[Rfam]
RNA: SAH (S-adenosyl-L-homocysteine) riboswitch aptamer
RNA sequence: CACGCCAAGGAGCGCUGCGACGGAAUGGGUACGAGCCCAUUUUGCCAGGCUUGGUACUGAGGUAUUUUGCAACUGCGCUCACGUUAC
Number, nucleotide and partner (000 for none) at each position: 001c000002a000003c000004g055005c054006c053007a052008a051009g000010g000011a000012g000013c000014g000015c000016u000017g000018c000019g000020a000021c044022g043023g042024a041025a040026u039027g038028g037029g036030u000031a000032c000033g000034a000035g000036c029037c028038c027039a026040u025041u024042u023043u022044g021045c000046c000047a000048g000049g000050c000051u008052u007053g006054g005055u004056a000057c000058u000059g000060a000061g000062g000063u000064a000065u000066u000067u000068u000069g000070c000071a000072a000073c000074u000075g000076c000077g000078c000079u000080c000081a000082c000083g000084u000085u000086a000087c000